A member of the RNA family "Gammaprotebacteria rimP leader" from Pluralibacter gergoviae, 101 nucleotides long. The organism belongs to Pluralibacter, within Bacteria. A reference for the family is Naville and Gautheret (2010), "Premature terminator analysis sheds light on a hidden world of bacterial transcriptional attenuation", Genome Biol. Its family is annotated with regulation of gene expression in the Gene Ontology.

RNA sequence: AACCGCAGUUGCGGUUCCAGGGUUCAGUUAUAUAAAACCCCGAUUUAUCGGGGUUUUUUGUUAUCUGACUAAAGAAUAACUGGGCUUUAUGCCCUUUUUUU
Numbered sequence: 001a002a003c004c005g006c007a008g009u010u011g012c013g014g015u016u017c018c019a020g021g022g023u024u025c026a027g028u029u030a031u032a033u034a035a036a037a038c039c040c041c042g043a044u045u046u047a048u049c050g051g052g053g054u055u056u057u058u059u060g061u062u063a064u065c066u067g068a069c070u071a072a073a074g075a076a077u078a079a080c081u082g083g084g085c086u087u088u089a090u091g092c093c094c095u096u097u098u099u100u101u
Stems, first nucleotide, its partner, number of pairs: 034057009082094004